A member of the RNA family "Small nucleolar RNA MBII-202" from Conger conger, 82 nucleotides long. The match comes from Rfam's covariance-model search (49 bits). Pairs were carried over by alignment from the consensus structure, which was predicted with PFOLD.
[Rfam]
RNA sequence: AUGACACUUUCUCCGGAAUCUCUGCAAUUGUUUUGAUGACUUCCGUUGAACCCUUUUUGGCUGAUGACUGCAUGGCCUGUAA
Numbered sequence: 001a002u003g004a005c006a007c008u009u010u011c012u013c014c015g016g017a018a019u020c021u022c023u024g025c026a027a028u029u030g031u032u033u034u035g036a037u038g039a040c041u042u043c044c045g046u047u048g049a050a051c052c053c054u055u056u057u058u059g060g061c062u063g064a065u066g067a068c069u070g071c072a073u074g075g076c077c078u079g080u081a082a
Stems, first nucleotide, its partner, number of pairs: 002082001004080003